Z30 small nucleolar RNA: a 91-nucleotide RNA sequence from Erpetoichthys calabaricus.
The source organism's lineage runs through Eukaryota, Chordata, Actinopterygii, Polypteridae and Erpetoichthys.
Pairs were carried over by alignment from the consensus structure, which was predicted with PFOLD.
The match comes from Rfam's covariance-model search (77 bits).
The family has 20 seed sequences and 802 matches in Rfam 15.1.
Rfam classes the family as a C/D-box small nucleolar RNA.
[Rfam]
RNA sequence: AGCAGUGAUGAGUAGAAUGUAUGACUUGGUAUUGUCUAUCCUUGUGAGGACUCUGACCAGGAUAUGAACAGUUAAUCUUCUCUCUGAGCUG
Number, nucleotide and partner (000 for none) at each position: 001a000002g089003c088004a000005g000006u000007g000008a000009u000010g000011a000012g000013u000014a000015g000016a000017a000018u000019g000020u000021a000022u000023g000024a000025c000026u000027u000028g000029g000030u000031a000032u000033u000034g051035u050036c049037u048038a000039u000040c000041c000042u000043u000044g000045u000046g000047a000048g037049g036050a035051c034052u000053c000054u000055g000056a000057c000058c000059a000060g000061g000062a000063u000064a000065u000066g000067a000068a000069c000070a000071g000072u000073u000074a000075a000076u000077c000078u000079u000080c000081u000082c000083u000084c000085u000086g000087a000088g003089c002090u000091g000
The literature on the family includes a 2002 paper in Mol Cell Biol by Galardi et al., "Purified box C/D snoRNPs are able to reproduce site-specific 2'-O-methylation of target RNA in vitro".